[Rfam]
RNA sequence: AGUGAUGAUAGAGGAGCAGGUGUCAAGAGUAGCCUUUUUGAGAGUGUAGUAACUCAGUGAAAGAAGGUGAAAGGGGAAACUGCCGAAGUGAUGAAGGAACUACGACUUCAUUGCUGGUUCUGUAUUGAAUAAAUGCAGAAUUGUCAGAGUGUACACUCUGGAGGGCUAUCUCACAU
Numbered sequence: 001a002g003u004g005a006u007g008a009u010a011g012a013g014g015a016g017c018a019g020g021u022g023u024c025a026a027g028a029g030u031a032g033c034c035u036u037u038u039u040g041a042g043a044g045u046g047u048a049g050u051a052a053c054u055c056a057g058u059g060a061a062a063g064a065a066g067g068u069g070a071a072a073g074g075g076g077a078a079a080c081u082g083c084c085g086a087a088g089u090g091a092u093g094a095a096g097g098a099a100c101u102a103c104g105a106c107u108u109c110a111u112u113g114c115u116g117g118u119u120c121u122g123u124a125u126u127g128a129a130u131a132a133a134u135g136c137a138g139a140a141u142u143g144u145c146a147g148a149g150u151g152u153a154c155a156c157u158c159u160g161g162a163g164g165g166c167u168a169u170c171u172c173a174c175a176u
Stems, first nucleotide, its partner, number of pairs: 007170005016083004021078001023076002032068008087115010116142011144161007